[Rfam]
RNA: Nematode snoRNA ceN39
Organism: Mesorhabditis spiculigera
RNA sequence: CAGGCGCCUAGGAACCAGGGACACUCCAAUAGUGGCUUUGGGCCGAAAACCGCCAAUAGCAACAGGAGGGACUAUGGUCGGAUGCGGUUGUUUCGCCAAUCGUGUCCAUUACCUACCCUGACUAACAUUU
Numbered sequence: 001c002a003g004g005c006g007c008c009u010a011g012g013a014a015c016c017a018g019g020g021a022c023a024c025u026c027c028a029a030u031a032g033u034g035g036c037u038u039u040g041g042g043c044c045g046a047a048a049a050c051c052g053c054c055a056a057u058a059g060c061a062a063c064a065g066g067a068g069g070g071a072c073u074a075u076g077g078u079c080g081g082a083u084g085c086g087g088u089u090g091u092u093u094c095g096c097c098a099a100u101c102g103u104g105u106c107c108a109u110u111a112c113c114u115a116c117c118c119u120g121a122c123u124a125a126c127a128u129u130u
Stems, first nucleotide, its partner, number of pairs: 003054003011044002015041006022034004066122001067119004071114001076113003080107002083104008